[Rfam]
RNA sequence: GGAUAACUCUUUUUGCUAUGUCCGGCCAAUAACAUAAUGACACGUAGUACAACUUUUUCACGUGUCAUUGUGUUAUUGGCCGAAGAUAGCAAAACAAUGUUAUUC
Numbered sequence: 001g002g003a004u005a006a007c008u009c010u011u012u013u014u015g016c017u018a019u020g021u022c023c024g025g026c027c028a029a030u031a032a033c034a035u036a037a038u039g040a041c042a043c044g045u046a047g048u049a050c051a052a053c054u055u056u057u058u059c060a061c062g063u064g065u066c067a068u069u070g071u072g073u074u075a076u077u078g079g080c081c082g083a084a085g086a087u088a089g090c091a092a093a094a095c096a097a098u099g100u101u102a103u104u105c
Base pairs, nucleotide, nucleotide: 002104003103004102005101011094012093013092014091015090016089017088018087019086021084023082024081025080026079027078028077029076030075031074032073033072034071035070036069037068038067039066040065041064042063043062044061045060047058049056
RNA: MIR6274 microRNA precursor family
Organism: Prunus yedoensis